The record is an 89-nucleotide sequence from Trichechus manatus, which matches "mir-449 microRNA precursor family" in Rfam. Rfam 15.1 lists 325 matches to the family in 192 species. The match comes from Rfam's covariance-model search (65 bits). The organism belongs to Trichechus manatus, within Eukaryota. Clan: mir-34 clan. The base pairs follow the family's consensus structure, which was predicted with RNAalifold.

[Rfam]
RNA sequence: UGUGUGCGAUGGGCUGGCAGUGUAUUGUUAGCUGGUUGAAUCAGUAAGUGGCAUCAGCUAACAUGCAGCUGCUAACUUAUUGCAUCACU
Numbered sequence: 001u002g003u004g005u006g007c008g009a010u011g012g013g014c015u016g017g018c019a020g021u022g023u024a025u026u027g028u029u030a031g032c033u034g035g036u037u038g039a040a041u042c043a044g045u046a047a048g049u050g051g052c053a054u055c056a057g058c059u060a061a062c063a064u065g066c067a068g069c070u071g072c073u074a075a076c077u078u079a080u081u082g083c084a085u086c087a088c089u
Base pairs, nucleotide, nucleotide: 002088003087004086005084006083007082008081009080010079011078012077013076015074016073017072018071019070020069021068022066023065024064027062028061029060030059031058032057033056034055035054036053041050